[Rfam]
RNA sequence: CGCCCACUUGGGCGUCUACCCCGGUACCUGAUACGGCCGGAGAGA
Numbered sequence: 001c002g003c004c005c006a007c008u009u010g011g012g013c014g015u016c017u018a019c020c021c022c023g024g025u026a027c028c029u030g031a032u033a034c035g036g037c038c039g040g041a042g043a044g045a
Base pairs, nucleotide, nucleotide: 001014002013003012004011005010015045016044017043019042021040022039023038024037025036
Dot-bracket structure: (((((....)))))(((.(.(((((..........))))).))))